Rfam assigns this 48-nucleotide RNA from Aquilegia coerulea to the family "Plastid-ccsA-ndhD-2 3UTR RNA". The family's consensus secondary structure was predicted with LocARNA. Lineage of the source: Eukaryota > Viridiplantae > Embryophyta > Tracheophyta > Aquilegia.
RNA sequence: UUUUUAAGAACCGUUUGAAUCACGACUUGAUUCAAAUGGUUCUUAAAA
Numbered sequence: 001u002u003u004u005u006a007a008g009a010a011c012c013g014u015u016u017g018a019a020u021c022a023c024g025a026c027u028u029g030a031u032u033c034a035a036a037u038g039g040u041u042c043u044u045a046a047a048a
Base pairs, nucleotide, nucleotide: 004046005045006044007043008042009041010040011039012038013037014036015035016034017033018032019031020030021029022028
Dot-bracket structure: ...(((((((((((((((((((.....)))))))))))))))))))..